[Rfam]
U11 spliceosomal RNA: a 129-nucleotide sequence from Hippolais icterina.
RNA sequence: AAAAAGGGCUUCUGUCGUGUGUGGCACGGGGGGGCUCCGGGCCACUCCUGCGGAAUCGACAUCAAGAGAUUUCGGAAGCACAAUUUUUGUGAGAGAGGGCCGCUGGUAACCGCUUGUUCCGGCACCCUA
Numbered sequence: 001a002a003a004a005a006g007g008g009c010u011u012c013u014g015u016c017g018u019g020u021g022u023g024g025c026a027c028g029g030g031g032g033g034g035c036u037c038c039g040g041g042c043c044a045c046u047c048c049u050g051c052g053g054a055a056u057c058g059a060c061a062u063c064a065a066g067a068g069a070u071u072u073c074g075g076a077a078g079c080a081c082a083a084u085u086u087u088u089g090u091g092a093g094a095g096a097g098g099g100c101c102g103c104u105g106g107u108a109a110c111c112g113c114u115u116g117u118u119c120c121g122g123c124a125c126c127c128u129a
Stems, first nucleotide, its partner, number of pairs: 008079005013026005027050006033043004051074007097127003102123005108118003